[Rfam]
RNA sequence: CCGCCCGUCGUUGUUUCCGAUGAUGGUGCAAUACAGGUGAACGGACAGUCGAACGUUUCGUUUGACCGAAAGUUCACCGAUAUUUCUUCAAUAGAGGAAGCAAAAGUCGUAACAAGGUAGCUGUAGGUGAACCUGCAGCUGGAUCAUUU
Number, nucleotide and partner (000 for none) at each position: 001c116002c000003g113004c000005c000006c109007g108008u000009c106010g000011u103012u102013g101014u100015u099016u098017c097018c096019g000020a000021u093022g092023a000024u090025g089026g088027u000028g086029c000030a084031a083032u082033a081034c000035a000036g078037g077038u076039g075040a074041a073042c072043g000044g000045a000046c068047a000048g066049u065050c064051g063052a062053a061054c060055g059056u000057u000058u000059c055060g054061u053062u052063u051064g050065a049066c048067c000068g046069a000070a000071a000072g042073u041074u040075c039076a038077c037078c036079g000080a000081u033082a032083u031084u030085u000086c028087u000088u026089c025090a024091a000092u022093a021094g000095a000096g018097g017098a016099a015100g014101c013102a012103a011104a000105a000106g009107u000108c007109g006110u000111a000112a000113c003114a000115a000116g001117g000118u141119a140120g139121c138122u137123g136124u135125a134126g133127g132128u000129g000130a000131a000132c127133c126134u125135g124136c123137a122138g121139c120140u119141g118142g000143a000144u000145c000146a000147u000148u000149u000
RNA: Eukaryotic small subunit ribosomal RNA, nucleotides 2058 to 2206